Shown here is a 191-nucleotide sequence from Tepidibacillus fermentans, a member of the family "Lysine riboswitch aptamer". Rfam's curators write: Riboswitches are metabolite binding domains within certain messenger RNAs that serve as precision sensors for their corresponding targets. Allosteric rearrangement of mRNA structure is mediated by ligand binding, and this results in modulation of gene expression. This family includes riboswitches that sense lysine in a number of genes involved in lysine metabolism, including lysC. Taxonomically the source falls in Tepidibacillus (Bacteria, Bacillati, Caryophanales, Bacillaceae). A search with the family's covariance model found it, with a score of 123 bits.
[Rfam]
RNA sequence: UUGUGAGGUAGGGGUUGCAAAAUUCAUGAGUCGUCUACGGGAAUGUCGGGAAAAUGAUGAACGUAGAUAAAAGGGGAUUUUGCCGAAGCAUACUUAUGAAUCCCGCAUAAGUAUAGCUGGGCUUACAUCGAAUAGGUGUAAGACUGUCACAGUUAAACAUCCCAAUUUAACUGUGGAGAACUAUCUUGAUC
Numbered sequence: 001u002u003g004u005g006a007g008g009u010a011g012g013g014g015u016u017g018c019a020a021a022a023u024u025c026a027u028g029a030g031u032c033g034u035c036u037a038c039g040g041g042a043a044u045g046u047c048g049g050g051a052a053a054a055u056g057a058u059g060a061a062c063g064u065a066g067a068u069a070a071a072a073g074g075g076g077a078u079u080u081u082g083c084c085g086a087a088g089c090a091u092a093c094u095u096a097u098g099a100a101u102c103c104c105g106c107a108u109a110a111g112u113a114u115a116g117c118u119g120g121g122c123u124u125a126c127a128u129c130g131a132a133u134a135g136g137u138g139u140a141a142g143a144c145u146g147u148c149a150c151a152g153u154u155a156a157a158c159a160u161c162c163c164a165a166u167u168u169a170a171c172u173g174u175g176g177a178g179a180a181c182u183a184u185c186u187u188g189a190u191c
Stems, first nucleotide, its partner, number of pairs: 006186006017083009033068007087118003090114009119145002122142008147176011
Dot-bracket structure: .....((((((.....(((((((((.......(((((((......................)))))))......)))))))))...((((((((((((.......))))))))).)))((.((((((((.....)))))))).)).(((((((((((........)))))))))))....)))))).....